[Rfam]
RNA sequence: GGGGACCUUCGGGGCCCUAUAACCAUUGCCACCUUUCGGGGUGGCACUACAGCUAAACGGAAGACAGACA
Numbered sequence: 001g002g003g004g005a006c007c008u009u010c011g012g013g014g015c016c017c018u019a020u021a022a023c024c025a026u027u028g029c030c031a032c033c034u035u036u037c038g039g040g041g042u043g044g045c046a047c048u049a050c051a052g053c054u055a056a057a058c059g060g061a062a063g064a065c066a067g068a069c070a
Stems, first nucleotide, its partner, number of pairs: 001018004006014003027046007

The record is a 70-nucleotide RNA from Sulfitobacter mediterraneus, which matches "L2-Alphaproteobacteria ribosomal protein leader" in Rfam.
The family's consensus secondary structure is taken from published work.
The family's RNA type in Rfam is cis-regulatory leader.
The organism belongs to Sulfitobacter, within Bacteria.